[Rfam]
The record is a 67-nucleotide RNA sequence from Cricetulus griseus, which matches "mir-8/mir-141/mir-200 microRNA precursor family" in Rfam.
Nucleotides: 067
Base pairs, nucleotide, nucleotide: 002066004064006062007061008060009059010057011056012055013054014053015052016051017050018049019048020047022045023044024043025042026041027040
Number, partner (000 for none) and nucleotide at each position: 001000g002066u003000g004064g005000c006062c007061a008060u009059c010057u011056u012055a013054c014053u015052g016051g017050g018049c019048a020047g021000c022045a023044u024043u025042g026041g027040a028000u029000a030000g031000u032000g033000u034000c035000u036000g037000a038000u039000c040027u041026c042025u043024a044023a045022u046000a047020c048019u049018g050017c051016c052015u053014g054013g055012u056011a057010a058000u059009g060008a061007u062006g063000a064004c065000g066002g067000c